The record is a 182-nucleotide sequence from Paraburkholderia phytofirmans, which matches "Manganese Mn2+ riboswitch aptamer (yybP-ykoY)" in Rfam. It scores 56 bits against the family's covariance model.
[Rfam]
RNA sequence: CGCCUGCUCAUUGGGGAGUAGCCGCCUCGAACGCCAUGUUCGAGGGCGCAUGUCAACAUACUUGGCGAGUCGAGAGACCCGCUAUGGCGUGCGCAGCUAAGUGCCUGGCAAGACCGAUGACACGCAUUCCGACCUAACCGGGUCGCCGGAAUGCGCGUCAUCGCGUGCUUUCAGCGCGGCCC
Numbered sequence: 001c002g003c004c005u006g007c008u009c010a011u012u013g014g015g016g017a018g019u020a021g022c023c024g025c026c027u028c029g030a031a032c033g034c035c036a037u038g039u040u041c042g043a044g045g046g047c048g049c050a051u052g053u054c055a056a057c058a059u060a061c062u063u064g065g066c067g068a069g070u071c072g073a074g075a076g077a078c079c080c081g082c083u084a085u086g087g088c089g090u091g092c093g094c095a096g097c098u099a100a101g102u103g104c105c106u107g108g109c110a111a112g113a114c115c116g117a118u119g120a121c122a123c124g125c126a127u128u129c130c131g132a133c134c135u136a137a138c139c140g141g142g143u144c145g146c147c148g149g150a151a152u153g154c155g156c157g158u159c160a161u162c163g164c165g166u167g168c169u170u171u172c173a174g175c176g177c178g179g180c181c182c
Stems, first nucleotide, its partner, number of pairs: 026044003046094010063084005